[Rfam]
RNA sequence: ACAGGUCUUUUUGCGGUCUGGGCUUUCUGGGUCUAUAAAAUCCCAAUUUCAGAAAGCCCUUACCCCAAAAAGCAUCUG
Numbered sequence: 001a002c003a004g005g006u007c008u009u010u011u012u013g014c015g016g017u018c019u020g021g022g023c024u025u026u027c028u029g030g031g032u033c034u035a036u037a038a039a040a041u042c043c044c045a046a047u048u049u050c051a052g053a054a055a056g057c058c059c060u061u062a063c064c065c066c067a068a069a070a071a072g073c074a075u076c077u078g
Stems, first nucleotide, its partner, number of pairs: 007072007015064003020059004025054001027052002

A member of the RNA family "mir-129 microRNA precursor family" from Aquarana catesbeiana, 78 nucleotides long. The organism belongs to Aquarana, within Eukaryota. The family's consensus secondary structure was predicted with RNAalifold.